[Rfam]
RNA sequence: GAGCGCAUGGGCAAACCUGCCGAGAGGCAGGGACGCAAAGCCUCCGGUCCUCCCUGCACAGCAGGCGGAUAGCGGGGUUGCUUUCA
Numbered sequence: 001g002a003g004c005g006c007a008u009g010g011g012c013a014a015a016c017c018u019g020c021c022g023a024g025a026g027g028c029a030g031g032g033a034c035g036c037a038a039a040g041c042c043u044c045c046g047g048u049c050c051u052c053c054c055u056g057c058a059c060a061g062c063a064g065g066c067g068g069a070u071a072g073c074g075g076g077g078u079u080g081c082u083u084u085c086a
Stems, first nucleotide, its partner, number of pairs: 003083001011036002016031006034072001039079004044075003047070003
The family of this 86-nucleotide sequence from Curvibacter sp. AEP1-3 is "c-di-GMP-I-GGC riboswitch aptamer". The organism belongs to Curvibacter, within Bacteria. A reference for the family is Smith et al. (2012), "Structural and biochemical characterization of linear dinucleotide analogues bound to the c-di-GMP-I aptamer", Biochemistry.